[Rfam]
RNA sequence: GGCUCAAUGAUUUUUCAGCCUUUUAGGCAAUAUACGCUAUUCUGAAUCAUUUAUGUUGUCAUUCAUAAAUCUUUUAUGAGAGUU
Numbered sequence: 001g002g003c004u005c006a007a008u009g010a011u012u013u014u015u016c017a018g019c020c021u022u023u024u025a026g027g028c029a030a031u032a033u034a035c036g037c038u039a040u041u042c043u044g045a046a047u048c049a050u051u052u053a054u055g056u057u058g059u060c061a062u063u064c065a066u067a068a069a070u071c072u073u074u075u076a077u078g079a080g081a082g083u084u
Stems, first nucleotide, its partner, number of pairs: 001084005

This 84-nucleotide RNA from Chenopodium quinoa belongs to the Rfam family "Small nucleolar RNA U54". U54 is a C/D box small nucleolar RNA, which acts as a methylation guide for 18S ribosomal RNA in plants. The literature on the family includes a 2003 paper in Nucleic Acids Res by Chen et al., "The high diversity of snoRNAs in plants: identification and comparative study of 120 snoRNA genes from Oryza sativa". The family has 21 seed sequences and 614 matches in Rfam 15.1. Gene Ontology terms of the family: RNA processing and nucleolus.